[Rfam]
RNA sequence: CCUCUUCCAUACAUCGCGGACCUGUGCCCAGCGGUCCUCUGCUUUUCUUUGAAGAGUCAGGGUCGACUGCUGCGCAGCUCGAUAACAGCAUGGAGCCACCAACUUGUUAUGGUGUCAAUCAUCCUAUCGACAGGUCCAAGAAGGACUCGGUCUGUGGCCGCCUCGUUCGUCGUCGCAAGACGGCUUGAGCGUUGCGGCUCCUGGCUGGAGGCGCUAUAUUCCAACCCUCUUUUCCGAGAUCGUCGGUCCGUGAGGUUGGGGAAAACCAUGGUGGCCUACAUUU
Numbered sequence: 001c002c003u004c005u006u007c008c009a010u011a012c013a014u015c016g017c018g019g020a021c022c023u024g025u026g027c028c029c030a031g032c033g034g035u036c037c038u039c040u041g042c043u044u045u046u047c048u049u050u051g052a053a054g055a056g057u058c059a060g061g062g063u064c065g066a067c068u069g070c071u072g073c074g075c076a077g078c079u080c081g082a083u084a085a086c087a088g089c090a091u092g093g094a095g096c097c098a099c100c101a102a103c104u105u106g107u108u109a110u111g112g113u114g115u116c117a118a119u120c121a122u123c124c125u126a127u128c129g130a131c132a133g134g135u136c137c138a139a140g141a142a143g144g145a146c147u148c149g150g151u152c153u154g155u156g157g158c159c160g161c162c163u164c165g166u167u168c169g170u171c172g173u174c175g176c177a178a179g180a181c182g183g184c185u186u187g188a189g190c191g192u193u194g195c196g197g198c199u200c201c202u203g204g205c206u207g208g209a210g211g212c213g214c215u216a217u218a219u220u221c222c223a224a225c226c227c228u229c230u231u232u233u234c235c236g237a238g239a240u241c242g243u244c245g246g247u248c249c250g251u252g253a254g255g256u257u258g259g260g261g262a263a264a265a266c267c268a269u270g271g272u273g274g275c276c277u278a279c280a281u282u283u
Stems, first nucleotide, its partner, number of pairs: 018137008026075002029072003033068004037062005042056002044053002047051001083129001085127001087125001091117003095113003150205003156201001157198005168187001169184006210276003213272005226261004234255002238248004